[Rfam]
RNA sequence: UGCAGACGCCUCUGGCGUUUCCUCCCUUUGACUUCGGCCGCACCCACGGGUGCGGCCCUUUUUUUGCCGGAA
Numbered sequence: 001u002g003c004a005g006a007c008g009c010c011u012c013u014g015g016c017g018u019u020u021c022c023u024c025c026c027u028u029u030g031a032c033u034u035c036g037g038c039c040g041c042a043c044c045c046a047c048g049g050g051u052g053c054g055g056c057c058c059u060u061u062u063u064u065u066g067c068c069g070g071a072a
Base pairs, nucleotide, nucleotide: 008016009015010014036057037056038055039054040053041052042051043050044049
This 72-nucleotide RNA from Hyphomonas chukchiensis belongs to the Rfam family "Makes More Granules Regulator RNA (mmgR)". Taxonomically the source falls in Hyphomonas (Bacteria, Alphaproteobacteria, Hyphomonadales, Hyphomonadaceae). By type it is a small RNA. The base pairs follow the family's consensus structure.